[Rfam]
Shown here is a 31-nucleotide RNA from Nephila pilipes, a member of the family "Iron response element II".

RNA sequence: CAGCCUUCUGUACCAGUGCGUGCAAAGGCUG
Numbered sequence: 001c002a003g004c005c006u007u008c009u010g011u012a013c014c015a016g017u018g019c020g021u022g023c024a025a026a027g028g029c030u031g
Base pairs, nucleotide, nucleotide: 001031002030003029004028005027006026007025009024010023011022012021013020014018
Rfam links the family to the GO term response to iron ion. The source organism's lineage runs through Eukaryota, Arachnida, Araneomorphae, Entelegynae and Nephila. IRE, TFRC, SLC40A1, SDHB, SLC11A2, CDC42BPA, ACO2, ALAS2_H.SAPIENS, CDC14A, EPAS1, ALAS2, qoxD, Hao1, NDUFS1, transferrin, Aconitate.